[Rfam]
RNA: Small nucleolar SNORD12/SNORD106
Organism: Betta splendens
RNA sequence: GACGUGGUUAAUGAUGCAUCUUCUUUUUUCCCCAUCUUAUCGACCAUGGUGAAAAUCACCUGAAAAUAAGCCAAAUAGUCUGAAACCACGUU
Numbered sequence: 001g002a003c004g005u006g007g008u009u010a011a012u013g014a015u016g017c018a019u020c021u022u023c024u025u026u027u028u029u030c031c032c033c034a035u036c037u038u039a040u041c042g043a044c045c046a047u048g049g050u051g052a053a054a055a056u057c058a059c060c061u062g063a064a065a066a067u068a069a070g071c072c073a074a075a076u077a078g079u080c081u082g083a084a085a086c087c088a089c090g091u092u
Stems, first nucleotide, its partner, number of pairs: 001092009